Shown here is a 61-nucleotide RNA sequence from Pristionchus pacificus, a member of the family "mir-8364 microRNA precursor family". Gene Ontology terms of the family: miRNA-mediated post-transcriptional gene silencing and RISC complex. Lineage of the source: Eukaryota > Bilateria > Protostomia > Ecdysozoa > Pristionchus. The base pairs follow the family's consensus structure, which was predicted with RNAalifold.
RNA sequence: UCCUCGAUUUGCAUGCUCUCUCAUCUGUCUAACCGGCGAGAGAGCAUGCAAAUCGAGGAGA
Numbered sequence: 001u002c003c004u005c006g007a008u009u010u011g012c013a014u015g016c017u018c019u020c021u022c023a024u025c026u027g028u029c030u031a032a033c034c035g036g037c038g039a040g041a042g043a044g045c046a047u048g049c050a051a052a053u054c055g056a057g058g059a060g061a
Stems, first nucleotide, its partner, number of pairs: 001059007010050001012048006019041004